[Rfam]
RNA sequence: CACACGCAGGUAUCUGGGGCUGCUUUUAAGCCUCACUCCGGUGUCUUAAAAGACCGUGAGCCUGCGGAGGAUUAACCGGAAAAUAAAGGAAAUUU
Numbered sequence: 001c002a003c004a005c006g007c008a009g010g011u012a013u014c015u016g017g018g019g020c021u022g023c024u025u026u027u028a029a030g031c032c033u034c035a036c037u038c039c040g041g042u043g044u045c046u047u048a049a050a051a052g053a054c055c056g057u058g059a060g061c062c063u064g065c066g067g068a069g070g071a072u073u074a075a076c077c078g079g080a081a082a083a084u085a086a087a088g089g090a091a092a093u094u095u
Stems, first nucleotide, its partner, number of pairs: 001069001003067001005066007015035007043054004
RNA: rpsB sRNA